[Rfam]
RNA sequence: AGCUGGACCGGGUCAACGGCGCGGGUGGUCAGCAGGUAGUCGCGCAGCACGAUGCCGUGCCGGCCCUC
Numbered sequence: 001a002g003c004u005g006g007a008c009c010g011g012g013u014c015a016a017c018g019g020c021g022c023g024g025g026u027g028g029u030c031a032g033c034a035g036g037u038a039g040u041c042g043c044g045c046a047g048c049a050c051g052a053u054g055c056c057g058u059g060c061c062g063g064c065c066c067u068c
Base pairs, nucleotide, nucleotide: 004063006061008059011030012029013028016026017025035056036055037054038053040052041051042050044048